[Rfam]
RNA sequence: GUGGCUAUUGUGAUGAUUUACAAACAUAGCAUAGUUCAUCUGAUUACAAAUGAUGAAACAUUGUAGCACAAAUGUCUUUCGCUCCCAUCUGAAUAGCCAA
Numbered sequence: 001g002u003g004g005c006u007a008u009u010g011u012g013a014u015g016a017u018u019u020a021c022a023a024a025c026a027u028a029g030c031a032u033a034g035u036u037c038a039u040c041u042g043a044u045u046a047c048a049a050a051u052g053a054u055g056a057a058a059c060a061u062u063g064u065a066g067c068a069c070a071a072a073u074g075u076c077u078u079u080c081g082c083u084c085c086c087a088u089c090u091g092a093a094u095a096g097c098c099a100a
Stems, first nucleotide, its partner, number of pairs: 004097005
RNA: Small nucleolar RNA snR60/Z15/Z230/Z193/J17